[Rfam]
Nucleotides: 181
Stems, first nucleotide, its partner, number of pairs: 001016006032178001038173001042168006048161005064156006075148003079141001082140004086114004092107004
Number, partner (000 for none) and nucleotide at each position: 001016u002015u003014a004013u005012c006011c007000g008000u009000g010000a011006g012005g013004a014003u015002a016001g017000g018000a019000c020000u021000g022000c023000a024000c025000g026000g027000a028000a029000g030000c031000g032178a033000g034000c035000c036000u037000a038173c039000a040000a041000a042168c043167u044166c045165u046164g047163g048161u049160a050159c051158u052157g053000a054000c055000g056000a057000a058000c059000a060000g061000g062000a063000a064156u065155c066154u067153g068152a069151u070000a071000c072000g073000a074000g075148g076147c077146u078000a079141u080000g081000c082140g083139g084138u085137a086114g087113g088112g089111u090000a091000a092107g093106c094105a095104a096000a097000c098000a099000c100000a101000c102000c103000a104095u105094u106093g107092u108000a109000a110000c111089g112088c113087c114086c115000a116000a117000g118000a119000c120000u121000c122000u123000a124000a125000g126000c127000a128000a129000u130000u131000g132000g133000a134000g135000a136000c137085u138084a139083c140082c141079a142000a143000a144000a145000u146077a147076g148075u149000a150000g151069a152068u153067c154066a155065g156064g157052c158051a159050g160049u161048a162000a163047u164046u165045a166044g167043a168042g169000g170000a171000a172000a173038g174000a175000a176000g177000a178032u179000g180000u181000a